[Rfam]
RNA sequence: ACCCUUCAGUUUCCUUUCCCAUUGGAUCUCAACACUGGUCUUGGUGGUCAUAAAAGAGGGAGAGUGCUGAAGCUGCCCUCAUAGCCUUGUAGUCGUGUAUAAGCAUAUGGGCUGGAUUCAAACAGGG
Numbered sequence: 001a002c003c004c005u006u007c008a009g010u011u012u013c014c015u016u017u018c019c020c021a022u023u024g025g026a027u028c029u030c031a032a033c034a035c036u037g038g039u040c041u042u043g044g045u046g047g048u049c050a051u052a053a054a055a056g057a058g059g060g061a062g063a064g065u066g067c068u069g070a071a072g073c074u075g076c077c078c079u080c081a082u083a084g085c086c087u088u089g090u091a092g093u094c095g096u097g098u099a100u101a102a103g104c105a106u107a108u109g110g111g112c113u114g115g116a117u118u119c120a121a122a123c124a125g126g127g
Base pairs, nucleotide, nucleotide: 003059004058005057007056019047020046021045022044023043025040026039027038028037073115074114075113077111078110079109088105089104090103

About this RNA:
Shown here is a 127-nucleotide RNA sequence from Nannospalax galili, a member of the family "Small nucleolar RNA SNORA61". The organism belongs to Nannospalax, within Eukaryota. The family's RNA type in Rfam is H/ACA-box small nucleolar RNA. ACA61 is a member of the H/ACA class of snoRNA that guide the sites of modification of uridines to pseudouridines. The base pairs follow the family's consensus structure, which was predicted with PFOLD. Gene Ontology terms of the family: RNA processing and nucleolus.